ffh sRNA: a 52-nucleotide RNA sequence from Roseovarius sp. A46. The organism belongs to Roseovarius, within Bacteria. Pairs were carried over by alignment from the consensus structure, which is taken from published work. On this family, see Meyer et al., BMC Genomics 2009: "Identification of candidate structured RNAs in the marine organism 'Candidatus Pelagibacter ubique'".

RNA sequence: AAUGCCCGGGAUCGCCCCCCGUCAGCGCAUUGCGCCCACGGGGGCAUUUAUC
Numbered sequence: 001a002a003u004g005c006c007c008g009g010g011a012u013c014g015c016c017c018c019c020c021g022u023c024a025g026c027g028c029a030u031u032g033c034g035c036c037c038a039c040g041g042g043g044g045c046a047u048u049u050a051u052c
Stems, first nucleotide, its partner, number of pairs: 016044007025035004